[Rfam]
RNA sequence: GGGGUGUGCUCAGAGCAGAAGGCCUGAAGGAUGGGUCCUCUGUUUAUAACACACCCAAUAGGAAUCUGGCCAUUGUAUGAAGAGGGUUACAAAAUGUGUGGUAUUCCUCUAAACAAAUGCCAUAUAUGU
Dot-bracket structure: .(((((((....(((((((.(.((........))..).)))))))....)))))))..........((((...(((.....(.(.(.((((.....)))).).).....)..)))...)))).......
Shown here is a 129-nucleotide sequence from Jaculus jaculus, a member of the family "Small nucleolar RNA SNORA11". The family's RNA type in Rfam is H/ACA-box small nucleolar RNA. The organism belongs to Jaculus, within Eukaryota. About the family: U107 (SNORA11) is a member of the H/ACA class of snoRNAs that guide the sites of modification of uridines to pseudouridines. This snoRNA was identified by RT-PCR from blood cells and its expression confirmed by Northern blot analysis. For this family Rfam cites "A novel experimental approach for systematic identification of box H/ACA snoRNAs from eukaryotes" (Gu et al., Nucleic Acids Res, 2005). Its family is annotated with RNA processing and nucleolus in the Gene Ontology. A search with the family's covariance model found it, with a score of 102 bits.